[Rfam]
RNA sequence: UGGAAACUAGAUACAAGACUGGCUCUAAUGAAGCAUUGCCCGUCUUCACUAUAGUUUCCUAUAUUAUUUGCUUUCUGAUGACCUUAGUGGGGUCAAGGUUACACUGAGGACAGAUACGAAGCAAACAUGA
Number, nucleotide and partner (000 for none) at each position: 001u000002g059003g058004a057005a056006a055007c054008u000009a000010g000011a000012u000013a000014c000015a046016a045017g044018a043019c000020u000021g000022g039023c038024u000025c000026u000027a000028a000029u000030g000031a000032a000033g000034c000035a000036u000037u000038g023039c022040c000041c000042g000043u018044c017045u016046u015047c000048a000049c000050u000051a000052u000053a000054g007055u006056u005057u004058c003059c002060u000061a000062u000063a000064u000065u000066a000067u000068u124069u123070g122071c121072u120073u119074u118075c000076u000077g000078a000079u000080g000081a000082c109083c108084u107085u000086a000087g104088u103089g102090g000091g000092g000093u000094c000095a000096a000097g000098g000099u000100u000101a000102c089103a088104c087105u000106g000107a084108g083109g082110a000111c000112a000113g000114a000115u000116a000117c000118g074119a073120a072121g071122c070123a069124a068125a000126c000127a000128u000129g000130a000